[Rfam]
RNA: Bacterial RNase P class A
Organism: Prevotella sp. CAG:617
RNA sequence: GCAGAUGGAUAAUUCGUCGCUUGCAUUAUUUUGAUGCAAGAGGAAAGUCCGGGCAACAUAGGGCAACUUGCUUCUUAAUGGGAAGUCAUCUGUGAAGGUGAAUAAUUGCAGAAGAAAAUAACCGCCAUUUUGUGGUAAGGGUGAGAAGGUGGGGUAAGAGCCCACCAGUUAUAUGGUGACAUAUAAGCUGUGCAAGUCAAGUGUUGAAAGUUCAUGUAUACUGGUGUCUGAGAGCGGCCCGUUCAAGUUCUUCUCAAAAGGGAGAUACAUCAGAGGGUAGAACGAUAGAGUUUAUUGGUGACAAUAAAUCUAGAUAAAUGACGAAUGACCGUCAUGGUUUACAGAACCCGGCUUAUCGUUUGUCUGCAUUU
Number, nucleotide and partner (000 for none) at each position: 001g367002c366003a365004g364005a363006u362007g361008g360009a359010u358011a356012a326013u325014u324015c323016g322017u321018c320019g000020c040021u039022u038023g037024c036025a035026u034027u033028a032029u000030u000031u000032u028033g027034a026035u025036g024037c023038a022039a021040g020041a000042g000043g000044a000045a354046a353047g352048u000049c351050c350051g349052g348053g347054c206055a205056a204057c203058a000059u000060a000061g000062g000063g000064c000065a000066a202067c201068u200069u199070g198071c085072u084073u083074c082075u081076u000077a000078a000079u000080g000081g075082g074083a073084a072085g071086u102087c100088a099089u098090c097091u000092g000093u000094g000095a000096a000097g090098g089099u088100g087101a000102a086103u000104a000105a000106u000107u196108g193109c192110a191111g000112a000113a000114g000115a000116a000117a000118a000119u000120a000121a000122c140123c139124g136125c135126c134127a133128u132129u000130u000131u000132g128133u127134g126135g125136u124137a000138a000139g123140g122141g000142u000143g000144a000145g000146a000147a000148g166149g165150u164151g163152g162153g161154g000155u000156a000157a000158g000159a000160g000161c153162c152163c151164a150165c149166c148167a000168g188169u186170u185171a184172u183173a182174u181175g180176g000177u000178g000179a000180c175181a174182u173183a172184u171185a170186a169187g000188c168189u000190g000191u110192g109193c108194a000195a000196g107197u000198c070199a069200a068201g067202u066203g057204u056205u055206g054207a000208a000209a000210g283211u282212u281213c280214a000215u000216g000217u000218a000219u000220a000221c273222u272223g271224g270225u269226g000227u000228c000229u000230g000231a000232g000233a000234g000235c000236g000237g000238c000239c000240c000241g000242u000243u000244c000245a000246a000247g000248u000249u000250c264251u263252u262253c261254u260255c000256a000257a000258a000259a000260g254261g253262g252263a251264g250265a000266u000267a000268c000269a225270u224271c223272a222273g221274a000275g000276g000277g000278u000279a000280g213281a212282a211283c210284g000285a000286u000287a000288g000289a000290g309291u308292u307293u306294a305295u304296u303297g302298g000299u000300g000301a000302c297303a296304a295305u294306a293307a292308a291309u290310c000311u000312a000313g000314a000315u000316a000317a000318a000319u000320g018321a017322c016323g015324a014325a013326u012327g000328a000329c000330c000331g000332u000333c000334a000335u000336g000337g000338u000339u000340u000341a000342c000343a000344g000345a000346a000347c053348c052349c051350g050351g049352c047353u046354u045355a000356u011357c000358g010359u009360u008361u007362g006363u005364c004365u003366g002367c001368a000369u000370u000371u000